[Rfam]
RNA: Plastid-psbA-3 3UTR RNA
RNA sequence: AAAAGGAGCAAUAACCUCUUUCUUGGUUUAUCAAGAAGGUUAUUGCUCCUUUAUUU
Numbered sequence: 001a002a003a004a005g006g007a008g009c010a011a012u013a014a015c016c017u018c019u020u021u022c023u024u025g026g027u028u029u030a031u032c033a034a035g036a037a038g039g040u041u042a043u044u045g046c047u048c049c050u051u052u053a054u055u056u
Stems, first nucleotide, its partner, number of pairs: 002052014020037006